Shown here is a 109-nucleotide sequence from Dictyobacter arantiisoli, a member of the family "SAM riboswitch aptamer (S box leader)". The match comes from Rfam's covariance-model search (82 bits). The organism belongs to Dictyobacter, within Bacteria.
RNA sequence: CUCUCAUCAAGAGAGGUGGAGGGAAACGGCCCGAUGAAGCCCGGCAACCCGCUGUCCUGACAGGACGGGUGCCAAUUCCGGCGGUCUAUGCUAUGCCGCAAGAUGAGGG
Numbered sequence: 001c002u003c004u005c006a007u008c009a010a011g012a013g014a015g016g017u018g019g020a021g022g023g024a025a026a027c028g029g030c031c032c033g034a035u036g037a038a039g040c041c042c043g044g045c046a047a048c049c050c051g052c053u054g055u056c057c058u059g060a061c062a063g064g065a066c067g068g069g070u071g072c073c074a075a076u077u078c079c080g081g082c083g084g085u086c087u088a089u090g091c092u093a094u095g096c097c098g099c100a101a102g103a104u105g106a107g108g109g
Stems, first nucleotide, its partner, number of pairs: 001109008013042001015041003021032003027080003043073004048069002052063002077101001082098004087093001